[Rfam]
A member of the RNA family "Bacterial RNase P class B" from Allolucifera butyrica, 321 nucleotides long. Lineage of the source: Bacteria > Bacillota > Veillonellales > Veillonellaceae > Allolucifera.

RNA sequence: AUCUACGAGGAGUCGCGGCGGAAUUCCGCUGAGGAAAGUCCAGACUGCCACAACCUGUGACGGUUGUAGUGUGUGUGCCUUUCGCAAGAGAGGGCAGGCCGCAGGCCUGACGGCGGCAAAAUUGGCUCUCGCAGUCAAAAGUAGCCUGAAAGUGCCACAGAAACAAUACGUCCUGGCGACAGGACGGUGCAAGGGUAAACCCCGCACGGCAGAAACCCAAAUUAUGGUAGGGGAACCUCUCUUAUGGAAUCAGAACGGCGGAGAGGAGUAUCUUAUGAUACUAGAUAGAUGACUCCAUAAAACAAAAACUGGCUUACGGUA
Numbered sequence: 001a002u003c004u005a006c007g008a009g010g011a012g013u014c015g016c017g018g019c020g021g022a023a024u025u026c027c028g029c030u031g032a033g034g035a036a037a038g039u040c041c042a043g044a045c046u047g048c049c050a051c052a053a054c055c056u057g058u059g060a061c062g063g064u065u066g067u068a069g070u071g072u073g074u075g076u077g078c079c080u081u082u083c084g085c086a087a088g089a090g091a092g093g094g095c096a097g098g099c100c101g102c103a104g105g106c107c108u109g110a111c112g113g114c115g116g117c118a119a120a121a122u123u124g125g126c127u128c129u130c131g132c133a134g135u136c137a138a139a140a141g142u143a144g145c146c147u148g149a150a151a152g153u154g155c156c157a158c159a160g161a162a163a164c165a166a167u168a169c170g171u172c173c174u175g176g177c178g179a180c181a182g183g184a185c186g187g188u189g190c191a192a193g194g195g196u197a198a199a200c201c202c203c204g205c206a207c208g209g210c211a212g213a214a215a216c217c218c219a220a221a222u223u224a225u226g227g228u229a230g231g232g233g234a235a236c237c238u239c240u241c242u243u244a245u246g247g248a249a250u251c252a253g254a255a256c257g258g259c260g261g262a263g264a265g266g267a268g269u270a271u272c273u274u275a276u277g278a279u280a281c282u283a284g285a286u287a288g289a290u291g292a293c294u295c296c297a298u299a300a301a302a303c304a305a306a307a308a309c310u311g312g313c314u315u316a317c318g319g320u321a
Base pairs, nucleotide, nucleotide: 004321005320006319007317009296010295011294012293013292014291016031017030018029019028020027021026036315037314038313040312041311042310043309045212046211047210048209049208050067051066052065053064054063055062073207074206075205076204077203078093079092080091081090082089083088094111095109096108097107098106099105100104112202113201115146116145117144123137124136125135126134152200153199154196155195156194169186170185171184172183173182174181175180216232217231218230236266237265238264239263240262241261242260267282268281269280270279271278272277
The family's consensus secondary structure is taken from published work.
About the family: Ribonuclease P (RNase P) is a ubiquitous endoribonuclease, found in archaea, bacteria and eukarya as well as chloroplasts and mitochondria.
It is annotated as a ribozyme.
On this family, see Brown, Nucleic Acids Res 1999: "The Ribonuclease P Database".